[Rfam]
RNA sequence: CGACGUGCCCUCUCGAUCCGGGUGCAUGGAAGCGUAGGAACUCCCAUCCUCCCAGGUCGGAGGGCAUCGUCACGUCCAGGGCAUCUUCACCACCGAAUGCCAAGCGGUGGAUUCAG
Numbered sequence: 001c002g003a004c005g006u007g008c009c010c011u012c013u014c015g016a017u018c019c020g021g022g023u024g025c026a027u028g029g030a031a032g033c034g035u036a037g038g039a040a041c042u043c044c045c046a047u048c049c050u051c052c053c054a055g056g057u058c059g060g061a062g063g064g065c066a067u068c069g070u071c072a073c074g075u076c077c078a079g080g081g082c083a084u085c086u087u088c089a090c091c092a093c094c095g096a097a098u099g100c101c102a103a104g105c106g107g108u109g110g111a112u113u114c115a116g
Stems, first nucleotide, its partner, number of pairs: 001069003006066007014059003018055001020053003024049001026047002029044001031042002095114004100110003

The record is a 116-nucleotide RNA from Actinomadura latina, which matches "Actinobacteria sRNA Ms_IGR-7" in Rfam. Lineage of the source: Bacteria > Actinomycetota > Actinomycetes > Streptosporangiales > Actinomadura. It scores 60 bits against the family's covariance model. It is annotated as a small RNA. On this family, see Li et al., RNA 2013: "Identification of small RNAs in Mycobacterium smegmatis using heterologous Hfq".